[Rfam]
RNA sequence: ACGAUGUUCCGCUGUUCCAUAGAGAGAUAUGAGCAUUGG
Numbered sequence: 001a002c003g004a005u006g007u008u009c010c011g012c013u014g015u016u017c018c019a020u021a022g023a024g025a026g027a028u029a030u031g032a033g034c035a036u037u038g039g
Base pairs, nucleotide, nucleotide: 003037004036005035006034007033008032009031013029014028015026016025017024
Rfam assigns this 39-nucleotide RNA sequence from Virgibacillus oceani to the family "Ribosomal protein L19 leader". The match comes from Rfam's covariance-model search (37 bits). Pairs were carried over by alignment from the consensus structure, which was predicted with CMfinder. Its family is annotated with regulation of gene expression in the Gene Ontology. This family is a putative r-protein leader autoregulatory structure found in B. subtilis and other low-GC Gram-positive bacteria. It is located in the 5' untranslated regions of mRNAs encoding ribosomal protein L19 (rplS). On this family, see Zengel and Lindahl, Prog Nucleic Acid Res Mol Biol 1994: "Diverse mechanisms for regulating ribosomal protein synthesis in Escherichia coli". Rfam classes the family as a cis-regulatory leader.